[Rfam]
RNA: Small nucleolar RNA SNORA71
RNA sequence: CCCUGCAUCCGAAAGUGACCGUGGGCUGCAGUGUCCCGGUCAUUGAUAGUGCAGGGAGAGGAAUUGUGGAAAGCCUUUCCCCGUGUUUGGAGGGUCUGCUCCUGUCCCUCCCAGACCCUGGAGCUUUCCCACA
Numbered sequence: 001c002c003c004u005g006c007a008u009c010c011g012a013a014a015g016u017g018a019c020c021g022u023g024g025g026c027u028g029c030a031g032u033g034u035c036c037c038g039g040u041c042a043u044u045g046a047u048a049g050u051g052c053a054g055g056g057a058g059a060g061g062a063a064u065u066g067u068g069g070a071a072a073g074c075c076u077u078u079c080c081c082c083g084u085g086u087u088u089g090g091a092g093g094g095u096c097u098g099c100u101c102c103u104g105u106c107c108c109u110c111c112c113a114g115a116c117c118c119u120g121g122a123g124c125u126u127u128c129c130c131a132c133a
Stems, first nucleotide, its partner, number of pairs: 001056008014044008023036004066130001068129007085116005090110005